The record is a 36-nucleotide sequence from Echinicola vietnamensis, which matches "DUF805b RNA" in Rfam. It is annotated as a cis-regulatory element. Pairs were carried over by alignment from the consensus structure, which is taken from published work. The source organism's lineage runs through Bacteria, Cytophagales, Cyclobacteriaceae, Echinicola and Echinicola vietnamensis.

RNA sequence: UCAGGAGAUGCUGAAAACCUGUGAAUAGAGUAGGCG
Numbered sequence: 001u002c003a004g005g006a007g008a009u010g011c012u013g014a015a016a017a018c019c020u021g022u023g024a025a026u027a028g029a030g031u032a033g034g035c036g
Stems, first nucleotide, its partner, number of pairs: 002021004010035003